[Rfam]
RNA sequence: AGCCUGUGAUGUAUGAAUAUUUGUCCGUACCAUCUGAGAUUCUUCUCUGAUCGAUAAACCAAUUCUUGAAUCUGAGGCUU
Numbered sequence: 001a002g003c004c005u006g007u008g009a010u011g012u013a014u015g016a017a018u019a020u021u022u023g024u025c026c027g028u029a030c031c032a033u034c035u036g037a038g039a040u041u042c043u044u045c046u047c048u049g050a051u052c053g054a055u056a057a058a059c060c061a062a063u064u065c066u067u068g069a070a071u072c073u074g075a076g077g078c079u080u
Stems, first nucleotide, its partner, number of pairs: 001079004
A member of the RNA family "small nucleolar RNA snoR117" from Trifolium subterraneum, 80 nucleotides long. For this family Rfam cites "Mining small RNA sequencing data: a new approach to identify small nucleolar RNAs in Arabidopsis" (Chen and Wu, Nucleic Acids Res, 2009). It is annotated as a C/D-box small nucleolar RNA. The family has 6 seed sequences and 419 matches in Rfam 15.1. A search with the family's covariance model found it, with a score of 68 bits. The family's consensus secondary structure was predicted with RNAalifold.